[Rfam]
RNA: Bacterial large signal recognition particle RNA
RNA sequence: CCGUGCAGCCGGGGUGGUAGCAGGACCCUGUACCUGAAAUCUGCUAUAGCAGGGGUGAUGCUUUGGUUGAGGGCUUGAUUUUAUGGAGCAGCCCAGUAAAAGUGGUGAUGACGUUUGGGUCUCUCGCAAUAGAAAUCUACGAAUCAUGUCAGGUCGGGAACGAAGCAGCAUUAAGUAGAAGCUUCUGUGUGCCGAGAGGUUGCCUGGGCCGAGCUAACUAGACUGGUAACGUCUGUGGAUGAUUGUUCGAGGCCAGAGCGCGCGG
Number, nucleotide and partner (000 for none) at each position: 001c265002c264003g263004u262005g261006c260007a000008g056009c055010c054011g029012g028013g027014g026015u025016g000017g000018u022019a000020g000021c000022a018023g000024g000025a015026c014027c013028c012029u011030g000031u000032a000033c053034c052035u051036g050037a000038a000039a000040u000041c000042u000043g000044c000045u000046a000047u000048a000049g000050c036051a035052g034053g033054g010055g009056u008057g000058a000059u000060g000061c000062u257063u256064u255065g254066g253067u252068u251069g000070a000071g248072g247073g246074c245075u000076u000077g000078a000079u000080u239081u238082u237083a236084u235085g234086g233087a232088g000089c000090a000091g000092c000093c000094c226095a000096g224097u000098a000099a000100a000101a000102g218103u217104g215105g214106u213107g000108a000109u000110g000111a000112c000113g209114u208115u207116u206117g205118g204119g203120u202121c198122u197123c196124u195125c194126g193127c189128a188129a000130u187131a186132g185133a184134a183135a000136u179137c178138u177139a176140c175141g000142a000143a000144u000145c000146a171147u170148g169149u168150c000151a000152g000153g000154u163155c162156g161157g000158g000159a000160a000161c156162g155163a154164a000165g000166c000167a000168g149169c148170a147171u146172u000173a000174a000175g140176u139177a138178g137179a136180a000181g000182c000183u134184u133185c132186u131187g130188u128189g127190u000191g000192c000193c126194g125195a124196g123197a122198g121199g000200u000201u000202g120203c119204c118205u117206g116207g115208g114209c113210c000211g000212a000213g106214c105215u104216a000217a103218c102219u000220a000221g000222a000223c000224u096225g000226g094227u000228a000229a000230c000231g000232u087233c086234u085235g084236u083237g082238g081239a080240u000241g000242a000243u000244u000245g074246u073247u072248c071249g000250a000251g068252g067253c066254c065255a064256g063257a062258g000259c000260g006261c005262g004263c003264g002265g001